[Rfam]
The family of this 66-nucleotide RNA from Apolygus lucorum is "mir-14 microRNA precursor family". The base pairs follow the family's consensus structure, which was predicted with RNAalifold. Gene Ontology terms of the family: miRNA-mediated post-transcriptional gene silencing and RISC complex. It scores 55 bits against the family's covariance model. Lineage of the source: Eukaryota > Mandibulata > Panheteroptera > Mirinae > Apolygus.
RNA sequence: UAUUGGGGAGAGAAUUGGGCUUGGCUCUUCUUCAUUUCUCAAGUCAGUCUUUUUCUCUCUCCUAUA
Number, nucleotide and partner (000 for none) at each position: 001u066002a065003u064004u000005g062006g061007g060008g059009a000010g057011a056012g055013a054014a000015u000016u000017g050018g049019g048020c047021u046022u000023g000024g044025c043026u042027c000028u000029u000030c000031u000032u000033c000034a000035u000036u000037u000038c000039u000040c000041a000042a026043g025044u024045c000046a021047g020048u019049c018050u017051u000052u000053u000054u013055c012056u011057c010058u000059c008060u007061c006062c005063u000064a003065u002066a001